[Rfam]
RNA: mir-172 microRNA precursor family
Organism: Macleaya cordata
RNA sequence: AUGUUUGCGGAUGCAGUAUCUUCAAGAUUCACAUAAAGUCAUGAGGGCCUCCUAAGAGUAUAACUCUCUACGGAGCUCUCAAAUAUGAGAAUCUUGAUGAUGCUGCAUCGGCAAUAAA
Number, nucleotide and partner (000 for none) at each position: 001a000002u000003g000004u000005u000006u000007g000008c000009g000010g109011a108012u107013g106014c105015a104016g103017u102018a101019u100020c099021u000022u097023c096024a095025a094026g093027a092028u091029u090030c089031a000032c087033a086034u085035a084036a000037a000038g000039u000040c000041a000042u000043g000044a000045g000046g000047g000048c000049c000050u000051c000052c000053u000054a000055a000056g000057a000058g000059u000060a000061u000062a000063a000064c000065u000066c000067u000068c000069u000070a000071c000072g000073g000074a000075g000076c000077u000078c000079u000080c000081a000082a000083a000084u035085a034086u033087g032088a000089g030090a029091a028092u027093c026094u025095u024096g023097a022098u000099g020100a019101u018102g017103c016104u015105g014106c013107a012108u011109c010110g000111g000112c000113a000114a000115u000116a000117a000118a000